[Rfam]
RNA sequence: CCGGCAUCCCAUUGGGGAGUAGCCUGCUUCCGUCCACGCGGAAGUUCCCGUAUCAACAUACUCGACGGCCCACGGCCGCCGUGGUACGGGCAGCCGUUUCGGUUGGCAAGACCUUUGGUAUGCCUGCGCGUUCAUCGGGCCGCGCCGGCAUGCCAUCGUCAUUUGCCCGACCGGAACCGUAAU
Numbered sequence: 001c002c003g004g005c006a007u008c009c010c011a012u013u014g015g016g017g018a019g020u021a022g023c024c025u026g027c028u029u030c031c032g033u034c035c036a037c038g039c040g041g042a043a044g045u046u047c048c049c050g051u052a053u054c055a056a057c058a059u060a061c062u063c064g065a066c067g068g069c070c071c072a073c074g075g076c077c078g079c080c081g082u083g084g085u086a087c088g089g090g091c092a093g094c095c096g097u098u099u100c101g102g103u104u105g106g107c108a109a110g111a112c113c114u115u116u117g118g119u120a121u122g123c124c125u126g127c128g129c130g131u132u133c134a135u136c137g138g139g140c141c142g143c144g145c146c147g148g149c150a151u152g153c154c155a156u157c158g159u160c161a162u163u164u165g166c167c168c169g170a171c172c173g174g175a176a177c178c179g180u181a182a183u
Base pairs, nucleotide, nucleotide: 027044028043029042047090048089049088050087051086052085053084054083055082063081064080066078067077068076069075096183097182098181
Rfam assigns this 183-nucleotide RNA from Massilia sp. Root335 to the family "Manganese Mn2+ riboswitch aptamer (yybP-ykoY)". Gene Ontology term of the family: manganese ion binding. This RNA was originally discovered in E. coli during a large scale screen and was named SraF. The family was later found to exist upstream of related families of protein genes in many bacteria, including the the yybP and ykoK genes in B. subtilis. On this family, see Argaman et al., Curr Biol 2001: "Novel small RNA-encoding genes in the intergenic regions of Escherichia coli". It scores 46 bits against the family's covariance model. The organism belongs to Massilia, within Bacteria.